[Rfam]
RNA sequence: ACACUGACGGAGCCAGCGAGCACAUCCUUGACCGAGAGGUCUGGGUAAUCUUGUUAAACUCCGUCGUGCUGGGGAUAGAGCUUUGCAAUUAUUGCUCUUCAACGAGGA
Numbered sequence: 001a002c003a004c005u006g007a008c009g010g011a012g013c014c015a016g017c018g019a020g021c022a023c024a025u026c027c028u029u030g031a032c033c034g035a036g037a038g039g040u041c042u043g044g045g046u047a048a049u050c051u052u053g054u055u056a057a058a059c060u061c062c063g064u065c066g067u068g069c070u071g072g073g074g075a076u077a078g079a080g081c082u083u084u085g086c087a088a089u090u091a092u093u094g095c096u097c098u099u100c101a102a103c104g105a106g107g108a
Base pairs, nucleotide, nucleotide: 006065007064008063009062010061011060012059018052019051020050026045027044030041031040032039033038072103077098078097079096080095081094
Rfam assigns this 108-nucleotide part of an RNA from Tortispora caseinolytica to the family "Eukaryotic small subunit ribosomal RNA". For this family Rfam cites "Crystal structure of the ribosome at 5.5 A resolution" (Yusupov et al., Science, 2001). A search with the family's covariance model found it, with a score of 1530 bits. Gene Ontology terms of the family: structural constituent of ribosome and ribosome. The family's consensus secondary structure is taken from published work.